[Rfam]
The family of this 77-nucleotide sequence from Hucho hucho is "U1A polyadenylation inhibition element (PIE)". For this family Rfam cites "Global and Local Dynamics of the U1A Polyadenylation Inhibition Element (PIE) RNA and PIE RNA-U1A Complexes" (Clerte and Hall, Biochemistry, 2004). This family represents the U1A polyadenylation inhibition element (PIE). PIE is a regulatory RNA which is responsible for the regulation of the length of the polyA tail of the U1A pre-mRNA. The PIE is located in the U1A mRNA 3' UTR. PIE adopts a U-shaped structure, with binding sites for a single U1A protein at each bend and when complexed with the two proteins it blocks activity of poly(A) polymerase (PAP), and inhibits its activity. Its family is annotated with regulation of mRNA polyadenylation in the Gene Ontology. Lineage of the source: Eukaryota > Chordata > Actinopteri > Euteleosteomorpha > Hucho.
RNA sequence: UUAAAAAGCAUUGCACCCAGGGUCUGUUUCGCCCAGACAUUGUACCUGGAGCUUCUCUGAUUAAAAUGUGAGCUUUU
Numbered sequence: 001u002u003a004a005a006a007a008g009c010a011u012u013g014c015a016c017c018c019a020g021g022g023u024c025u026g027u028u029u030c031g032c033c034c035a036g037a038c039a040u041u042g043u044a045c046c047u048g049g050a051g052c053u054u055c056u057c058u059g060a061u062u063a064a065a066a067u068g069u070g071a072g073c074u075u076u077u
Stems, first nucleotide, its partner, number of pairs: 006054004017049004022038005